[Rfam]
RNA sequence: AUUAAAUAUGAACAGAUCACUCGUAUAAUAGCAGGAAUAUGGCCUGCAAGUCUCUACCGGAUUACCGUAAAUUUUCCGACUACGAGUAAGCAUAUUGUACUU
Number, nucleotide and partner (000 for none) at each position: 001a000002u000003u000004a000005a000006a000007u000008a000009u000010g000011a000012a000013c000014a000015g000016a000017u000018c000019a087020c086021u085022c084023g083024u082025a081026u000027a000028a000029u049030a000031g047032c046033a045034g044035g043036a000037a000038u000039a000040u000041g000042g000043c035044c034045u033046g032047c031048a000049a029050g000051u000052c000053u000054c000055u000056a000057c000058c078059g077060g076061a075062u000063u000064a072065c000066c000067g000068u000069a000070a000071a000072u064073u000074u000075u061076c060077c059078g058079a000080c000081u025082a024083c023084g022085a021086g020087u019088a000089a000090g000091c000092a000093u000094a000095u000096u000097g000098u000099a000100c000101u000102u000
The record is a 102-nucleotide sequence from Aquibacillus salsiterrae, which matches "Purine riboswitch aptamer" in Rfam. The family's consensus secondary structure is taken from published work.